Bacterial RNase P class A: a 316-nucleotide RNA sequence from Flavobacterium akiainvivens.

RNA sequence: GAAACAGGCCGCCUUAUCGCCCGUUAACCAUUACGGGAGGAAAGUCCGGACACCAUAGGGCAGCAUAGCGGGUAACGCCCGUCACCCCGCGCAGGUGGGGGAGGACAAGUGCAACAGAAAGUAUGUACAGGUAAUGCUGUAGUGAAACCAGGUAAACUCUAUGCGGUGAAAUGCCAUGUAUACCGGCUAUAUGUAGGGCUGCCCGCCCGAUGCCGGGGGGUAGGCAGAUAGAUACAGGCAGUAAUGCCUGUGCCAGAUAAAUGAUAAGGGUUCUUUUUUAAGGAUACAGAAUCCGGCUUACAGGCCUGUUUUUUUA
Number, nucleotide and partner (000 for none) at each position: 001g312002a311003a310004a309005c308006a307007g306008g305009c304010c303011g301012c269013c268014u267015u266016a265017u264018c263019g000020c037021c036022c035023g034024u033025u000026a031027a000028c000029c000030a000031u026032u000033a024034c023035g022036g021037g020038a000039g000040g000041a000042a299043a298044g297045u000046c296047c295048g294049g293050a292051c168052a167053c166054c165055a000056u000057a000058g204059g203060g202061c201062a000063g164064c163065a162066u161067a160068g082069c081070g080071g079072g078073u000074a000075a000076c000077g000078c072079c071080c070081g069082u068083c103084a000085c100086c099087c098088c097089g096090c095091g000092c000093a000094g000095g090096u089097g088098g087099g086100g085101g000102a000103g083104g159105a158106c000107a000108a000109g157110u156111g153112c152113a000114a000115c000116a000117g000118a000119a000120a000121g000122u000123a000124u000125g000126u141127a140128c139129a138130g137131g000132u000133a000134a000135u000136g000137c130138u129139g128140u127141a126142g000143u000144g000145a000146a000147a000148c000149c000150a000151g000152g112153u111154a000155a000156a110157c109158u105159c104160u067161a066162u065163g064164c063165g054166g053167u052168g051169a000170a000171a000172u226173g225174c224175c223176a000177u000178g000179u000180a000181u000182a000183c216184c215185g214186g213187c212188u000189a000190u000191a000192u000193g000194u000195a000196g208197g207198g206199c205200u000201g061202c060203c059204c058205g199206c198207c197208c196209g000210a000211u000212g187213c186214c185215g184216g183217g000218g000219g000220g000221u000222a000223g175224g174225c173226a172227g000228a000229u000230a000231g000232a000233u252234a251235c250236a249237g248238g247239c246240a245241g000242u000243a000244a000245u240246g239247c238248c237249u236250g235251u234252g233253c000254c000255a000256g000257a000258u000259a000260a000261a000262u000263g018264a017265u016266a015267a014268g013269g012270g000271u000272u000273c000274u000275u000276u000277u000278u000279u000280a000281a000282g000283g000284a000285u000286a000287c000288a000289g000290a000291a000292u050293c049294c048295g047296g046297c044298u043299u042300a000301c011302a000303g010304g009305c008306c007307u006308g005309u004310u003311u002312u001313u000314u000315u000316a000
Ribonuclease P (RNase P) is a ubiquitous endoribonuclease, found in archaea, bacteria and eukarya as well as chloroplasts and mitochondria.